[Rfam]
Nucleotides: 116
Base pairs, nucleotide, nucleotide: 001041003040004039005038007036008035009034010033011032012031013030051079052078053077054076055075057073087111088110089109090108091107092106093105094104095103096102
Number, partner (000 for none) and nucleotide at each position: 001041a002000u003040c004039u005038c006000g007036u008035g009034a010033g011032c012031g013030c014000a015000u016000u017000c018000c019000u020000c021000c022000u023000c024000c025000c026000a027000u028000u029000g030013g031012c032011g033010c034009u035008u036007g037000c038005g039004a040003g041001u042000g043000u044000u045000c046000c047000c048000c049000u050000c051079u052078g053077g054076a055075g056000g057073u058000u059000u060000c061000g062000c063000c064000u065000u066000u067000a068000u069000u070000g071000g072000c073057a074000a075055c076054u077053c078052c079051a080000a081000c082000a083000a084000c085000u086000c087111a088110g089109g090108c091107c092106g093105g094104u095103u096102c097000u098000u099000c100000g101000u102096g103095a104094g105093c106092c107091g108090g109089c110088c111087u112000u113000u114000u115000u116000u